[Rfam]
RNA sequence: CAUGAAUCUAGUGGAAAGAUUUCUGCACAAACUAGACUACUGAAGCCAGUGUGUAUAAGUGCUUUUGAUACAUUUUUA
Numbered sequence: 001c002a003u004g005a006a007u008c009u010a011g012u013g014g015a016a017a018g019a020u021u022u023c024u025g026c027a028c029a030a031a032c033u034a035g036a037c038u039a040c041u042g043a044a045g046c047c048a049g050u051g052u053g054u055a056u057a058a059g060u061g062c063u064u065u066u067g068a069u070a071c072a073u074u075u076u077u078a
Stems, first nucleotide, its partner, number of pairs: 002077001004075004009070002012067005019060004024055006032049002
Dot-bracket structure: .(.((((.((.(((((..((((.((((((..((..............)))))))).))))..))))).)).)))).).
mir-147 microRNA precursor family: a 78-nucleotide RNA sequence from Phascolarctos cinereus.
The match comes from Rfam's covariance-model search (63 bits).
A reference for the family is Ahn et al. (2010), "MicroRNA transcriptome in the newborn mouse ovaries determined by massive parallel sequencing", Mol Hum Reprod.